[Rfam]
RNA: ASdes TB sRNA
RNA sequence: AGCUCCACGGGGUCCACGCCGCGGGUGACCACGAGGUAGUCGCGCAGGGCGACGCCGUGCCGGUUCUC
Numbered sequence: 001a002g003c004u005c006c007a008c009g010g011g012g013u014c015c016a017c018g019c020c021g022c023g024g025g026u027g028a029c030c031a032c033g034a035g036g037u038a039g040u041c042g043c044g045c046a047g048g049g050c051g052a053c054g055c056c057g058u059g060c061c062g063g064u065u066c067u068c
Stems, first nucleotide, its partner, number of pairs: 004063002008059002011030003015027003035056003040052004